Shown here is a 99-nucleotide RNA from Homo sapiens, a member of the family "mir-1184 microRNA precursor family". Gene Ontology terms of the family: RISC complex and miRNA-mediated post-transcriptional gene silencing. The source organism's lineage runs through Eukaryota, Chordata, Dipnotetrapodomorpha, Eutheria and Homo. It is one of the family's seed sequences.
[Rfam]
RNA sequence: CUUGCAGAACGAGGUGAAGGAGGUGGUUCUGCUCAGCAGUCAACAGUGGCCACAUCUCCACCUGCAGCGACUUGAUGGCUUCCGUGUCCUUUUCGUGGG
Numbered sequence: 001c002u003u004g005c006a007g008a009a010c011g012a013g014g015u016g017a018a019g020g021a022g023g024u025g026g027u028u029c030u031g032c033u034c035a036g037c038a039g040u041c042a043a044c045a046g047u048g049g050c051c052a053c054a055u056c057u058c059c060a061c062c063u064g065c066a067g068c069g070a071c072u073u074g075a076u077g078g079c080u081u082c083c084g085u086g087u088c089c090u091u092u093u094c095g096u097g098g099g
Stems, first nucleotide, its partner, number of pairs: 005097002007094003011091004019083006026076003030069004036065004046061004